[Rfam]
RNA sequence: GGCUGUAAGAAGCGGAGAGGAUGCGUUGCGGACGCGGGUUCGACUCCCGCCAGCUCCACCACAUGGGUAUCCAUGCUUGAGGUAUUCAGCUGAUGGGGCUGCACUGGUUUCGACGUGGCCAGCAGUCAAUGUGGACAGCCCGAGAGGUGACUGACGUAAUCAGCACAAAACUACAAUCGCCGAAUAUGACGAUUAUCGGGCAGCCGCCUGA
Numbered sequence: 001g002g003c004u005g006u007a008a009g010a011a012g013c014g015g016a017g018a019g020g021a022u023g024c025g026u027u028g029c030g031g032a033c034g035c036g037g038g039u040u041c042g043a044c045u046c047c048c049g050c051c052a053g054c055u056c057c058a059c060c061a062c063a064u065g066g067g068u069a070u071c072c073a074u075g076c077u078u079g080a081g082g083u084a085u086u087c088a089g090c091u092g093a094u095g096g097g098g099c100u101g102c103a104c105u106g107g108u109u110u111c112g113a114c115g116u117g118g119c120c121a122g123c124a125g126u127c128a129a130u131g132u133g134g135a136c137a138g139c140c141c142g143a144g145a146g147g148u149g150a151c152u153g154a155c156g157u158a159a160u161c162a163g164c165a166c167a168a169a170a171c172u173a174c175a176a177u178c179g180c181c182g183a184a185u186a187u188g189a190c191g192a193u194u195a196u197c198g199g200g201c202a203g204c205c206g207c208c209u210g211a
Stems, first nucleotide, its partner, number of pairs: 001140005014127002025119002028116003034050005051101007141156002

Shown here is a 211-nucleotide sequence from Stenotrophomonas sp. B1-1, a member of the family "permuted transfer-messenger RNA". Pairs were carried over by alignment from the consensus structure, which is taken from published work. It is one of the family's seed sequences.